[Rfam]
RNA: rpsB sRNA
RNA sequence: CACACACGGACUUUGGUGUCUGCCCGGGAGAAAUCCGGCUGAAACCUCCGGUGGCGUUUUACGGCCCGAACGCGAAAAGUCAUGAGACUUUUCGGACAAGGCCGGAAGAUCGUCAGUUUGUCCGUGGAGGCUAACCGGAAAGGAAACUA
Numbered sequence: 001c002a003c004a005c006a007c008g009g010a011c012u013u014u015g016g017u018g019u020c021u022g023c024c025c026g027g028g029a030g031a032a033a034u035c036c037g038g039c040u041g042a043a044a045c046c047u048c049c050g051g052u053g054g055c056g057u058u059u060u061a062c063g064g065c066c067c068g069a070a071c072g073c074g075a076a077a078a079g080u081c082a083u084g085a086g087a088c089u090u091u092u093c094g095g096a097c098a099a100g101g102c103c104g105g106a107a108g109a110u111c112g113u114c115a116g117u118u119u120g121u122c123c124g125u126g127g128a129g130g131c132u133a134a135c136c137g138g139a140a141a142g143g144a145a146a147c148u149a
Stems, first nucleotide, its partner, number of pairs: 001129001003127001005126007015046002023037001026035001053114004058109003